[Rfam]
RNA sequence: AUGGAGAAGCAUGACAUUAGGGUUCAGCUGUAUUAAACCCCCGUAAUUCGGGGUUUUUUGUUAUCUAAAGAUGACUAUUUUGGAUGGAUAACUGGGCUUUAGGCCCUUUUUUU
Numbered sequence: 001a002u003g004g005a006g007a008a009g010c011a012u013g014a015c016a017u018u019a020g021g022g023u024u025c026a027g028c029u030g031u032a033u034u035a036a037a038c039c040c041c042c043g044u045a046a047u048u049c050g051g052g053g054u055u056u057u058u059u060g061u062u063a064u065c066u067a068a069a070g071a072u073g074a075c076u077a078u079u080u081u082g083g084a085u086g087g088a089u090a091a092c093u094g095g096g097c098u099u100u101a102g103g104c105c106c107u108u109u110u111u112u113u
Base pairs, nucleotide, nucleotide: 035056036055037054038053039052040051041050094106095105096104097103

A member of the RNA family "Gammaprotebacteria rimP leader" from Candidatus Enterovibrio altilux, 113 nucleotides long. Gene Ontology term of the family: regulation of gene expression. The match comes from Rfam's covariance-model search (71 bits). The organism belongs to Enterovibrio, within Bacteria.